[Rfam]
RNA sequence: UCACAAGUUCAAGGCCACAACAGAAGUGCUCCCGGUGCCGCCCUGUCAGAUUCCAGCAAGUCUGUGAAUUCUGCU
Numbered sequence: 001u002c003a004c005a006a007g008u009u010c011a012a013g014g015c016c017a018c019a020a021c022a023g024a025a026g027u028g029c030u031c032c033c034g035g036u037g038c039c040g041c042c043c044u045g046u047c048a049g050a051u052u053c054c055a056g057c058a059a060g061u062c063u064g065u066g067a068a069u070u071c072u073g074c075u
Stems, first nucleotide, its partner, number of pairs: 013042003019075001021073005026038003047064006
A member of the RNA family "Mammalian CPEB3 ribozyme" from Alligator sinensis, 75 nucleotides long. A search with the family's covariance model found it, with a score of 38 bits. From the family's description: The mammalian CPEB3 ribozyme is a self cleaving RNA located in the second intron of the CPEB3 gene which belongs to a family of genes regulating messenger RNA polyadenylation.